[Rfam]
Rfam assigns this 73-nucleotide RNA to the family "RAGATH-18 RNA".

RNA sequence: ACUGUGGAGAGUACAGGAACUUGUUAGUAGUGUCUGGGCAAUCAGCACAAAAGCAUACUCGUAGAAGCAGUAA
Numbered sequence: 001a002c003u004g005u006g007g008a009g010a011g012u013a014c015a016g017g018a019a020c021u022u023g024u025u026a027g028u029a030g031u032g033u034c035u036g037g038g039c040a041a042u043c044a045g046c047a048c049a050a051a052a053g054c055a056u057a058c059u060c061g062u063a064g065a066a067g068c069a070g071u072a073a
Stems, first nucleotide, its partner, number of pairs: 001071005009060005022055003030048003035044002
It is annotated as a small RNA.